Shown here is a 106-nucleotide sequence from Macaca fascicularis, a member of the family "Y RNA".
The organism belongs to Macaca, within Eukaryota.
Rfam classes the family as a non-coding RNA gene.
For this family Rfam cites "Conserved features of Y RNAs: a comparison of experimentally derived secondary structures" (Teunissen et al., Nucleic Acids Res, 2000).
From the family's description: Y RNAs are components of the Ro ribonucleoprotein particle (Ro RNP), in association with Ro60 and La proteins. The Y RNAs and Ro60 and La proteins are well conserved, but the function of the Ro RNP is not known. In humans the RNA component can be one of four small RNAs -- hY1, hY3, hY4 and hY5.
The base pairs follow the family's consensus structure, which is taken from published work.
[Rfam]
Nucleotides: 106
Stems, first nucleotide, its partner, number of pairs: 001102008010094002014090002016085004021080001037069001041065002
Number, partner (000 for none) and nucleotide at each position: 001102g002101a003100c004099u005098a006097g007096u008095c009000u010094g011093a012000a013000g014090g015089u016085u017084g018083u019082g020000a021080g022000c023000u024000a025000u026000a027000u028000c029000a030000a031000u032000u033000g034000a035000c036000u037069g038000u039000u040000c041065a042064g043000u044000u045000a046000c047000a048000g049000a050000u051000u052000g053000a054000a055000c056000u057000c058000c059000u060000u061000g062000u063000u064042c065041u066000a067000c068000u069037c070000u071000u072000u073000c074000u075000u076000c077000c078000u079000u080021c081000c082019u083018a084017c085016a086000a087000c088000u089015g090014c091000g092000c093011u094010u095008g096007a097006c098005u099004a100003g101002u102001c103000u104000u105000u106000a